Rfam assigns this 135-nucleotide RNA sequence from Vicugna pacos to the family "Small nucleolar RNA SNORA70".
Gene Ontology terms of the family: RNA processing and nucleolus.
The family's consensus secondary structure was predicted with PFOLD.
About the family: snoRNA U70 seems to be exclusive to mammals and is a member of the H/ACA class of snoRNA which contain H (ANANNA) and ACA box motifs. H/ACA box snoRNAs are involved in the conversion of uridines to pseudouridines (5-ribosyluracil) a constituent of structural RNAs (transfer, ribosomal, small nuclear, and small nucleolar).
[Rfam]
RNA sequence: CUGCAGCCAGUUAAGCUAAAUGUGUUCUUUUCCUUAUGGGGACCCAGGAUGCAGUGGCGGCAAACAGCAGCCUCCUUGGUUGUGUAUGCAGCCUGUUGCCUGCAUGGGUUGCUCUUGGGGACCCUGGAGACAGCU
Numbered sequence: 001c002u003g004c005a006g007c008c009a010g011u012u013a014a015g016c017u018a019a020a021u022g023u024g025u026u027c028u029u030u031u032c033c034u035u036a037u038g039g040g041g042a043c044c045c046a047g048g049a050u051g052c053a054g055u056g057g058c059g060g061c062a063a064a065c066a067g068c069a070g071c072c073u074c075c076u077u078g079g080u081u082g083u084g085u086a087u088g089c090a091g092c093c094u095g096u097u098g099c100c101u102g103c104a105u106g107g108g109u110u111g112c113u114c115u116u117g118g119g120g121a122c123c124c125u126g127g128a129g130a131c132a133g134c135u
Stems, first nucleotide, its partner, number of pairs: 002053004021046002025042004078123003089111006
Dot-bracket structure: .((((...............((..((((..........))))..))...))))........................(((........((((((...........)))))).........)))............